[Rfam]
RNA sequence: UUCACUUCUUGGCCUUUUGGCUAAGAUCAAGUGUAGUAUCUGUUCUUACCAGUUCAAUAUCUGAUACAUCCUCUGUCUGAGGACAAUAUAGUCGAUGGAUUUGGGCAACUAAAAGUUGGAAUAGAGGUUUGCUCCUUUCACUUCACACAUCGACCUGGUAUUGUAGUACUUACAGGAAUAGUGCACUCCUG
Number, nucleotide and partner (000 for none) at each position: 001u000002u000003c000004a000005c000006u000007u026008c025009u024010u000011g022012g021013c020014c019015u000016u000017u000018u000019g014020g013021c012022u011023a000024a009025g008026a007027u000028c000029a000030a000031g000032u000033g000034u000035a000036g000037u000038a000039u000040c000041u000042g000043u000044u000045c000046u000047u066048a065049c000050c063051a062052g061053u000054u000055c000056a000057a000058u000059a000060u000061c052062u051063g050064a000065u048066a047067c000068a000069u083070c082071c081072u080073c079074u000075g000076u000077c000078u000079g073080a072081g071082g070083a069084c000085a000086a000087u000088a000089u000090a000091g000092u000093c000094g000095a000096u000097g000098g000099a000100u000101u000102u000103g000104g000105g000106c000107a000108a000109c000110u000111a000112a000113a143114a142115g141116u140117u000118g138119g137120a000121a000122u000123a000124g135125a000126g133127g132128u000129u000130u000131g000132c127133u126134c000135c124136u000137u119138u118139c000140a116141c115142u114143u113144c000145a000146c000147a000148c183149a182150u181151c000152g179153a000154c176155c175156u174157g173158g000159u000160a000161u000162u000163g000164u000165a000166g000167u000168a000169c000170u000171u000172a000173c157174a156175g155176g154177a000178a000179u152180a000181g150182u149183g148184c000185a000186c000187u000188c000189c000190u000191g000
Record summary: Shown here is a 191-nucleotide RNA from Erinaceus europaeus, a member of the family "U2 spliceosomal RNA". Lineage of the source: Eukaryota > Opisthokonta > Gnathostomata > Euteleostomi > Erinaceus. Its family is annotated with mRNA branch site recognition, U2 snRNP and pre-mRNA branch point binding in the Gene Ontology. Rfam classes the family as a spliceosomal small nuclear RNA. Pairs were carried over by alignment from the consensus structure, which is taken from published work.